About this RNA
RNA Staph. aureus E (RoxS): a 120-nucleotide sequence from Peribacillus loiseleuriae. The family's consensus secondary structure is taken from published work. About the family: It was shown to be regulated by the presence of nitric oxide (NO). In Bacillus subtilis it controls expression of genes with functions related to oxidative stress and oxidation-reduction reactions and it was renamed RoxS (for related to oxidative stress). The match comes from Rfam's covariance-model search (98 bits). For this family Rfam cites "A nitric oxide regulated small RNA controls expression of genes involved in redox homeostasis in Bacillus subtilis" (Durand et al., PLoS Genet, 2015). Gene Ontology term of the family: regulation of translational initiation.

RNA sequence: GUGAAGUUAAUCACAAACAAACUUAUACCCCUUUGUUUGAUCGUGAAAAAUUUCUCCCAUCCCCUUUGUUCGUAUAAAUAGAUAAAAAAACCUAGCAAAUUCGCGAUUUGCUAGGUUUUU
Numbered sequence: 001g002u003g004a005a006g007u008u009a010a011u012c013a014c015a016a017a018c019a020a021a022c023u024u025a026u027a028c029c030c031c032u033u034u035g036u037u038u039g040a041u042c043g044u045g046a047a048a049a050a051u052u053u054c055u056c057c058c059a060u061c062c063c064c065u066u067u068g069u070u071c072g073u074a075u076a077a078a079u080a081g082a083u084a085a086a087a088a089a090a091c092c093u094a095g096c097a098a099a100u101u102c103g104c105g106a107u108u109u110g111c112u113a114g115g116u117u118u119u120u
Stems, first nucleotide, its partner, number of pairs: 003054006011046004018039005025034001070085001089117011